[Rfam]
RNA sequence: GGGCUUCUUACAGCAAAAUUAAUACAAAGUAAAUUAAAACCAAAGUGUGUAGGAUAGGUGGGAGACUUUGGUCAAGCGUGAAAGACCACCCCUUAGAUUUAAUUAAACCUACUUCUGAAAAGAAGGAAAACUUGAGCCCUG
Numbered sequence: 001g002g003g004c005u006u007c008u009u010a011c012a013g014c015a016a017a018a019u020u021a022a023u024a025c026a027a028a029g030u031a032a033a034u035u036a037a038a039a040c041c042a043a044a045g046u047g048u049g050u051a052g053g054a055u056a057g058g059u060g061g062g063a064g065a066c067u068u069u070g071g072u073c074a075a076g077c078g079u080g081a082a083a084g085a086c087c088a089c090c091c092c093u094u095a096g097a098u099u100u101a102a103u104u105a106a107a108c109c110u111a112c113u114u115c116u117g118a119a120a121a122g123a124a125g126g127a128a129a130a131c132u133u134g135a136g137c138c139c140u141g
Stems, first nucleotide, its partner, number of pairs: 001139006
The record is a 141-nucleotide sequence from Dictyostelium discoideum, which matches "Class I RNA from Dictyostelium" in Rfam.
Dictyostelium Class I RNA was first reported for Aspegren et al. 2004 in Dictyostelium discoideum. Sucgang et al. 2011 identify putative homologs of Class I RNA in D. discoideum and D. purpureum. Avesson et al. 2011 report that Class I RNA present a down regulation during the development of social amoeba Dictyostelium discoideum, they also found that deletion of one of the Class I RNAs, DdR-21, results in aberrant development. Kjellin et al. 2020 report an extended number of expressed Class I RNA genes in class Dictyostelia, in their analysis they remark that Class I RNA appear to be unique to dictyostelid social amoebas, and they hypothesise that Class I RNAs were involved in evolution of multicellularity in Dictyostelia.
The base pairs follow the family's consensus structure, which is taken from published work.